[Rfam]
RNA sequence: UAGUCGAGAGCGUUGAUCCGUCGAUGCGUUGAACGAUUGUUUCACUCGGCUU
Number, nucleotide and partner (000 for none) at each position: 001u000002a051003g050004u049005c048006g047007a046008g045009a000010g027011c026012g025013u024014u023015g022016a000017u000018c000019c000020g000021u000022c015023g014024a013025u012026g011027c010028g000029u000030u044031g043032a042033a040034c000035g000036a000037u000038u000039g000040u033041u000042u032043c031044a030045c008046u007047c006048g005049g004050c003051u002052u000
The record is a 52-nucleotide RNA from Gillisella ampelina, which matches "DUF3800-VI RNA" in Rfam. It scores 40 bits against the family's covariance model. Rfam classes the family as a cis-regulatory element. NCBI's taxonomy places the organism under Bacteria, Pseudomonadati, Alphaproteobacteria, Rhizobiaceae, Gillisella ampelina.